RNA sequence: AGCACCAAAAUCAGUAACCAAGCGACUGCUAAACUAGCUUGGCGACUACGCUUGGGUGCUAAAAUUAAAUACGCUAUGAUGCCGCAUUUAUUAAAAGAGCAUACUAACCCAUUAGAAUGCUUGUGGCCUUGUUUUGUAACAA
Numbered sequence: 001a002g003c004a005c006c007a008a009a010a011u012c013a014g015u016a017a018c019c020a021a022g023c024g025a026c027u028g029c030u031a032a033a034c035u036a037g038c039u040u041g042g043c044g045a046c047u048a049c050g051c052u053u054g055g056g057u058g059c060u061a062a063a064a065u066u067a068a069a070u071a072c073g074c075u076a077u078g079a080u081g082c083c084g085c086a087u088u089u090a091u092u093a094a095a096a097g098a099g100c101a102u103a104c105u106a107a108c109c110c111a112u113u114a115g116a117a118u119g120c121u122u123g124u125g126g127c128c129u130u131g132u133u134u135u136g137u138a139a140c141a142a
Stems, first nucleotide, its partner, number of pairs: 001060006013047003018042006070138004076132004081127005097122006104115003
Dot-bracket structure: ((((((......(((..((((((.............))))))..))).......)))))).........((((..((((.(((((...........((((((.(((......))).))))))))))).))))..))))....
This 142-nucleotide sequence from Drosophila mojavensis belongs to the Rfam family "Small nucleolar RNA psi28S-3378". For this family Rfam cites "Different expression strategy: multiple intronic gene clusters of box H/ACA snoRNA in Drosophila melanogaster" (Huang et al., J Mol Biol, 2004). By type it is an H/ACA-box small nucleolar RNA. psi28S-3378 is a member of the H/ACA class of snoRNA.